Notes:
Rfam assigns this 132-nucleotide RNA sequence from Betta splendens to the family "Small nucleolar RNA SNORA14". The family's consensus secondary structure was predicted with RNAfold. A search with the family's covariance model found it, with a score of 60 bits. The family's RNA type in Rfam is H/ACA-box small nucleolar RNA. Rfam describes the family as follows. ACA14 is a member of the H/ACA class of snoRNA that guide the sites of modification of uridines to pseudouridines. The organism belongs to Betta, within Eukaryota.
[Rfam]
RNA sequence: AAGCAUCCUUAUAACCCCCUCAGUUGCCUAGUGGUUACUGGGAUAAGAAAGGAUGCAAGAGAAAUAUUAGAAUUAUCCAAAGCUGAGCGCUAUGCAUCAGUAGCUCUUGGUUAUUUCACCUCUAAGACAGAU
Numbered sequence: 001a002a003g004c005a006u007c008c009u010u011a012u013a014a015c016c017c018c019c020u021c022a023g024u025u026g027c028c029u030a031g032u033g034g035u036u037a038c039u040g041g042g043a044u045a046a047g048a049a050a051g052g053a054u055g056c057a058a059g060a061g062a063a064a065u066a067u068u069a070g071a072a073u074u075a076u077c078c079a080a081a082g083c084u085g086a087g088c089g090c091u092a093u094g095c096a097u098c099a100g101u102a103g104c105u106c107u108u109g110g111u112u113a114u115u116u117c118a119c120c121u122c123u124a125a126g127a128c129a130g131a132u
Base pairs, nucleotide, nucleotide: 003056004055005054006053009048010047012046019042020041021040022039023038026035027034060132065127067125068124069123070122071121081112082111083110084109085108086107087106089104090103095100